[Rfam]
Nucleotides: 100
Stems, first nucleotide, its partner, number of pairs: 019085007029049007058076002061073003
Number, partner (000 for none) and nucleotide at each position: 001000a002000a003000a004000a005000a006000a007000u008000u009000a010000a011000a012000u013000u014000a015000u016000a017000g018000a019085u020084u021083u022082c023081g024080u025079a026000g027000a028000a029049u030048u031047c032046u033045a034044g035043u036000a037000a038000u039000a040000u041000g042000g043035g044034u045033u046032g047031g048030a049029a050000g051000u052000c053000u054000c055000u056000a057000c058076u059075a060000a061073g062072a063071a064000c065000c066000u067000a068000u069000a070000a071063u072062u073061c074000c075059u076058a077000a078000u079025u080024a081023c082022g083021a084020a085019g086000a087000a088000a089000a090000u091000u092000a093000c094000u095000u096000a097000g098000u099000u100000u

The family of this 100-nucleotide sequence from Clostridium sp. SM-530-WT-3G is "Purine riboswitch aptamer". It scores 63 bits against the family's covariance model. NCBI's taxonomy places the organism under Bacteria, Bacillota, Clostridia, Clostridiaceae, Clostridium.